[Rfam]
RNA sequence: AAGGAAUAACGAAACUGGUUUUCAUAAUGAUUUGACAGAUUUUAAUUUCUGAGAUCAUUUUGAAAGCUGAUUUUGUUCC
Numbered sequence: 001a002a003g004g005a006a007u008a009a010c011g012a013a014a015c016u017g018g019u020u021u022u023c024a025u026a027a028u029g030a031u032u033u034g035a036c037a038g039a040u041u042u043u044a045a046u047u048u049c050u051g052a053g054a055u056c057a058u059u060u061u062g063a064a065a066g067c068u069g070a071u072u073u074u075g076u077u078c079c
Stems, first nucleotide, its partner, number of pairs: 009076006016069009028057006